[Rfam]
RNA sequence: GACAUACUACGGUGCAUCGUUGUGGAAAGUAAACGAUGACCCAUAAGGAACUCUGGGUUAAAAUACGUAUCAAAAUGCAAAACCUCCAGGCCCUGAGCUUCCCUUUGGGUCUGGUUUAUUU
Numbered sequence: 001g002a003c004a005u006a007c008u009a010c011g012g013u014g015c016a017u018c019g020u021u022g023u024g025g026a027a028a029g030u031a032a033a034c035g036a037u038g039a040c041c042c043a044u045a046a047g048g049a050a051c052u053c054u055g056g057g058u059u060a061a062a063a064u065a066c067g068u069a070u071c072a073a074a075a076u077g078c079a080a081a082a083c084c085u086c087c088a089g090g091c092c093c094u095g096a097g098c099u100u101c102c103c104u105u106u107g108g109g110u111c112u113g114g115u116u117u118a119u120u121u
Stems, first nucleotide, its partner, number of pairs: 001040001003038003010035002014030002041048002057071001059069002086114008095105002
Shown here is a 121-nucleotide RNA sequence from Erwinia billingiae, a member of the family "Enterobacteria greA leader". The match comes from Rfam's covariance-model search (105 bits). On this family, see Naville and Gautheret, Genome Biol 2010: "Premature terminator analysis sheds light on a hidden world of bacterial transcriptional attenuation". Rfam classes the family as a cis-regulatory leader. The family's consensus secondary structure is taken from published work.